[Rfam]
RNA sequence: GGCACUUGUUGAACCUUUUUAUCUCCAUGUAACAAAGUAUUUUGACAUACAGGUGCAAAAAAUAAACCUUCUUUUGUAGAUCAGAACUCACUGAUCAGUAUGAGUUUUGAUACAUAGAAACAGGAAUAGG
Dot-bracket structure: .(((((((((..((.((................)).))........).)))))))).........(..((..(((......(((((((((..........)))))))))........)))..))..)...
RNA: Small nucleolar RNA SNORA40